Rfam assigns this 35-nucleotide RNA to the family "DUF805b RNA". Rfam's curators put it in the seed alignment. The family is grouped with related families in Rfam's "DUF805 clan". The base pairs follow the family's consensus structure, which is taken from published work.
[Rfam]
RNA sequence: AAGGCAGAUCCGAAAAGCCUAUAACAGAGUAAGAA
Numbered sequence: 001a002a003g004g005c006a007g008a009u010c011c012g013a014a015a016a017g018c019c020u021a022u023a024a025c026a027g028a029g030u031a032a033g034a035a
Base pairs, nucleotide, nucleotide: 002020003019004018005017010033